RNA sequence: GGGAUAACUGCGAGGAGCCAACCUUAGUACGAGAGGACUGGGUUGGGUCAACCUAUGGUGUACCGGUUGUUAUGCCAAUAGCAGCGCCGGGCAGCUAAGUUGGUAUGGAAGAACUGCAGCUAGCGGGAAAUCCUUCUCUAUACAAGUUAUCAUAAGAGGUUUUUGAACAUAACUUCGAUAGGCGAGAGGUGUAAGCACCGCGAGGUGUGAAGCGAUCUCGUACUAAACUAACCAAUU
Numbered sequence: 001g002g003g004a005u006a007a008c009u010g011c012g013a014g015g016a017g018c019c020a021a022c023c024u025u026a027g028u029a030c031g032a033g034a035g036g037a038c039u040g041g042g043u044u045g046g047g048u049c050a051a052c053c054u055a056u057g058g059u060g061u062a063c064c065g066g067u068u069g070u071u072a073u074g075c076c077a078a079u080a081g082c083a084g085c086g087c088c089g090g091g092c093a094g095c096u097a098a099g100u101u102g103g104u105a106u107g108g109a110a111g112a113a114c115u116g117c118a119g120c121u122a123g124c125g126g127g128a129a130a131u132c133c134u135u136c137u138c139u140a141u142a143c144a145a146g147u148u149a150u151c152a153u154a155a156g157a158g159g160u161u162u163u164u165g166a167a168c169a170u171a172a173c174u175u176c177g178a179u180a181g182g183c184g185a186g187a188g189g190u191g192u193a194a195g196c197a198c199c200g201c202g203a204g205g206u207g208u209g210a211a212g213c214g215a216u217c218u219c220g221u222a223c224u225a226a227a228c229u230a231a232c233c234a235a236u237u
Base pairs, nucleotide, nucleotide: 003151004150005149006148007147008146009145012138013137014136015135018046019045020044021043022042023041024040047104048103049102050101051100052099056097057096058095063090064089065088066087067086068083069082070081071080072079073078107133108132109131114126115125116124117123156232157229158174159173160172161171179225180224181223182221183220184219185218186217189213192209195208196207197206198205199204